RNA sequence: UUGGGCUGCCCAUGGCGGGCAUUUCCUCCCUUGAACUCGGCCCCGCUCGCUCCGGCGAGUGGGGCUUUUUCUUGGUUUGU
Numbered sequence: 001u002u003g004g005g006c007u008g009c010c011c012a013u014g015g016c017g018g019g020c021a022u023u024u025c026c027u028c029c030c031u032u033g034a035a036c037u038c039g040g041c042c043c044c045g046c047u048c049g050c051u052c053c054g055g056c057g058a059g060u061g062g063g064g065c066u067u068u069u070u071c072u073u074g075g076u077u078u079g080u
Stems, first nucleotide, its partner, number of pairs: 008020004040065009

Shown here is an 80-nucleotide RNA from Methylobacterium sp. BTF04, a member of the family "Makes More Granules Regulator RNA (mmgR)".
SuhB later renamed mmgR (makes more granules regulator) was a putative non-coding RNA found multiple times in the Agrobacterium tumefaciens genome and related alpha-proteobacteria. Other non-coding RNAs uncovered in the same analysis include: speF, ybhL, metA, and serC.Several studies inSinorhizobium meliloti showed that suhB element is indeed a non-coding RNA:firstly it was detected on Northern blot and called Sm8RNA, secondly in an RNAseq study referred to as SmelC689.The mutant phenotype's (strain lacking the small RNA) cytoplasm contains higher content of polyhydroxybutyrate (PBH)storage granules than wild type strain. The sRNA is required to limit the PBH intracellular accumulation when the nitrogen-fixing Sinorhizobium meliloti is under condition of surplus carbon in relation to nitrogen. It has been renamed to mmgR. Further study confirmed that mmgR fine-tunes the regulation of PBH storage.Northern blot confirmed the expression of the sRNA in other rhizobia species.
Pairs were carried over by alignment from the consensus structure.
It scores 44 bits against the family's covariance model.
The family has 87 seed sequences and 1,791 matches in Rfam 15.1.
The family's RNA type in Rfam is small RNA.
NCBI's taxonomy places the organism under Bacteria, Alphaproteobacteria, Hyphomicrobiales, Methylobacteriaceae, Methylobacterium.
Its Rfam clan is "suhB sRNA clan".